[Rfam]
Nucleotides: 067
Base pairs, nucleotide, nucleotide: 007065008064009063010062011061012060013059014058015057016056017055018054025048026041027040028039029038030037
Number, partner (000 for none) and nucleotide at each position: 001000g002000a003000a004000a005000g006000u007065a008064a009063a010062g011061g012060g013059g014058c015057a016056a017055u018054a019000a020000c021000c022000a023000a024000u025048u026041u027040c028039u029038u030037g031000u032000u033000c034000u035000a036000u037030c038029a039028a040027g041026a042000u043000c044000a045000a046000g047000a048025g049000g050000a051000u052000g053000g054018u055017a056016u057015u058014g059013c060012u061011c062010c063009u064008u065007u066000a067000u

Record summary: The record is a 67-nucleotide RNA sequence from Cornus controversa, which matches "Plastid-psbA-4 3UTR RNA" in Rfam. Rfam classes the family as a cis-regulatory element. Rfam's curators write: Plastid psbA-4 is a non-coding RNA (ncRNA) present in plastids. NCBI's taxonomy places the organism under Eukaryota, Streptophytina, Gunneridae, Pentapetalae, Cornus. The literature on the family includes a 2023 paper in Plant Commun by Richter et al., "Retrograde signaling in plants: A critical review focusing on the GUN pathway and beyond".